[Rfam]
RNA sequence: AGCCAUCGCAGCGGCGCACUCCUCCUCCCAGCGCCCUGGGAUCUGAUCGGCAACACUCCUCCUCCUCCCAGUUGCCGAUACAAUCAAAGCCUGACGCACCUCCUCCCGCGUCAGGCUUUUUUG
Numbered sequence: 001a002g003c004c005a006u007c008g009c010a011g012c013g014g015c016g017c018a019c020u021c022c023u024c025c026u027c028c029c030a031g032c033g034c035c036c037u038g039g040g041a042u043c044u045g046a047u048c049g050g051c052a053a054c055a056c057u058c059c060u061c062c063u064c065c066u067c068c069c070a071g072u073u074g075c076c077g078a079u080a081c082a083a084u085c086a087a088a089g090c091c092u093g094a095c096g097c098a099c100c101u102c103c104u105c106c107c108g109c110g111u112c113a114g115g116c117u118u119u120u121u122u123g
Stems, first nucleotide, its partner, number of pairs: 007040001009038001011036001013035005046079009087118011
Dot-bracket structure: ......(.(.(.(((((.............)))))).).).....(((((((((................))))))))).......(((((((((((..........))))))))))).....